This 118-nucleotide RNA sequence from Aminipila terrae belongs to the Rfam family "Ribosomal protein L10 leader". This family is a putative r-protein leader autoregulatory structure found in B. subtilis and other low-GC Gram-positive bacteria. It is located in the 5' untranslated regions of mRNAs encoding ribosomal proteins L10 and L12 (rplJ-rplL). A Rho-independent transcription terminator structure that is probably involved in regulation is included at the 3' end.
[Rfam]
RNA sequence: AAUUAAAUAGAAUUAUCACCGUAGACAGCGGGUGCAAUUGCUUAAUUUCCCGCCGAGGUACAAUAUAAAUAUGUUGUCCUUGUCAGUCUAUGAUUGGCAGGGAUUUUUUUAUGGAGUA
Numbered sequence: 001a002a003u004u005a006a007a008u009a010g011a012a013u014u015a016u017c018a019c020c021g022u023a024g025a026c027a028g029c030g031g032g033u034g035c036a037a038u039u040g041c042u043u044a045a046u047u048u049c050c051c052g053c054c055g056a057g058g059u060a061c062a063a064u065a066u067a068a069a070u071a072u073g074u075u076g077u078c079c080u081u082g083u084c085a086g087u088c089u090a091u092g093a094u095u096g097g098c099a100g101g102g103a104u105u106u107u108u109u110u111a112u113g114g115a116g117u118a
Stems, first nucleotide, its partner, number of pairs: 028053005034041002077103010
Rfam classes the family as a cis-regulatory leader. Taxonomically the source falls in Aminipila (Bacteria, Bacillati, Bacillota, Anaerovoracaceae). The match comes from Rfam's covariance-model search (81 bits).